Source information: This 133-nucleotide sequence from Caenorhabditis bovis belongs to the Rfam family "Nematode snoRNA ceN125". Gene Ontology terms of the family: RNA processing and nucleolus. The organism belongs to Caenorhabditis, within Eukaryota. The family's RNA type in Rfam is H/ACA-box small nucleolar RNA. Rfam 15.1 lists 17 matches to the family in 14 species. A reference for the family is Jia et al. (2007), "Systematic identification of non-coding RNA 2,2,7-trimethylguanosine cap structures in Caenorhabditis elegans", BMC Mol Biol.
RNA sequence: CACCCCCACGACAACAAAUUCCACUUGCGUGUAUUCCAAACGCAAUUGAGCCGACGUCGUGGGAUAGAAUUGCCGGUCGAUUGAUCCCGUCUGCUAUGUGUAUCAAGGCAAGCGGUUUGCACGAGGCCCACAA
Numbered sequence: 001c002a003c004c005c006c007c008a009c010g011a012c013a014a015c016a017a018a019u020u021c022c023a024c025u026u027g028c029g030u031g032u033a034u035u036c037c038a039a040a041c042g043c044a045a046u047u048g049a050g051c052c053g054a055c056g057u058c059g060u061g062g063g064a065u066a067g068a069a070u071u072g073c074c075g076g077u078c079g080a081u082u083g084a085u086c087c088c089g090u091c092u093g094c095u096a097u098g099u100g101u102a103u104c105a106a107g108g109c110a111a112g113c114g115g116u117u118u119g120c121a122c123g124a125g126g127c128c129c130a131c132a133a
Stems, first nucleotide, its partner, number of pairs: 005063008022048002025045006050055001075129001076127003082121002084118001087115004093109003097105001